[Rfam]
Shown here is a 50-nucleotide sequence from Erinaceus europaeus, a member of the family "Guanidine-II riboswitch aptamer (mini-ykkC)".
The match comes from Rfam's covariance-model search (33 bits).
Rfam's curators write: Simpler in structure and has fewer highly conserved nucleotide positions than the ykkC-yxkD leader. Despite this each of its two stem-loop structures directly bind free guanidine. Therefore, mini-ykkC RNA motif represents a distinct class of guanidine-sensing RNAs. Its crystal structure was also determined.
RNA sequence: AUGGGAGGACGGCCUCUCACUGCUUCCCUACAGAUGGGAGGACGGCCUCU
Numbered sequence: 001a002u003g004g005g006a007g008g009a010c011g012g013c014c015u016c017u018c019a020c021u022g023c024u025u026c027c028c029u030a031c032a033g034a035u036g037g038g039a040g041g042a043c044g045g046c047c048u049c050u
Stems, first nucleotide, its partner, number of pairs: 002019007037050005